[Rfam]
RNA sequence: GGCUGAUGAUGACUAUUUUGAAGGCUUCUUUCUCAGAAACAUUUGCAGUGGCCGCCUAAGAGCUUUUGCCUUUGCCAGGCUUAAGAGCUUAUUCUUCUUCAAUCCUUCCUUGGAUGUUUGAGACU
Numbered sequence: 001g002g003c004u005g006a007u008g009a010u011g012a013c014u015a016u017u018u019u020g021a022a023g024g025c026u027u028c029u030u031u032c033u034c035a036g037a038a039a040c041a042u043u044u045g046c047a048g049u050g051g052c053c054g055c056c057u058a059a060g061a062g063c064u065u066u067u068g069c070c071u072u073u074g075c076c077a078g079g080c081u082u083a084a085g086a087g088c089u090u091a092u093u094c095u096u097c098u099u100c101a102a103u104c105c106u107u108c109c110u111u112g113g114a115u116g117u118u119u120g121a122g123a124c125u
Stems, first nucleotide, its partner, number of pairs: 001125002004122001062088006

Small nucleolar RNA SNORD14: a 125-nucleotide RNA from Coptis chinensis. A search with the family's covariance model found it, with a score of 66 bits.